[Rfam]
This 143-nucleotide RNA from Ipomoea nil belongs to the Rfam family "mir-166 microRNA precursor family". It scores 86 bits against the family's covariance model. About the family: This family represents the plant microRNA (miRNA) precursor mir-166. The organism belongs to Ipomoea, within Eukaryota.

RNA sequence: AUUGAGGGGAAUGUUGUCUGGCUCGAGGCCACCAACUAGAUCCAUGUACCCAAAUCUCUUCUUUUUUUCCUUCUAAAUUCUGGGUAAUAGUUCAUCAUGGAUCAUGUGUUAGUGUCGUCGGACCAGGCUUCAUUCCCCCCAAU
Numbered sequence: 001a002u003u004g005a006g007g008g009g010a011a012u013g014u015u016g017u018c019u020g021g022c023u024c025g026a027g028g029c030c031a032c033c034a035a036c037u038a039g040a041u042c043c044a045u046g047u048a049c050c051c052a053a054a055u056c057u058c059u060u061c062u063u064u065u066u067u068u069c070c071u072u073c074u075a076a077a078u079u080c081u082g083g084g085u086a087a088u089a090g091u092u093c094a095u096c097a098u099g100g101a102u103c104a105u106g107u108g109u110u111a112g113u114g115u116c117g118u119c120g121g122a123c124c125a126g127g128c129u130u131c132a133u134u135c136c137c138c139c140c141a142a143u
Base pairs, nucleotide, nucleotide: 001143002142003141004140006138007137008136009135010134011133012132013131016128017127018126019125020124021123024120025119026118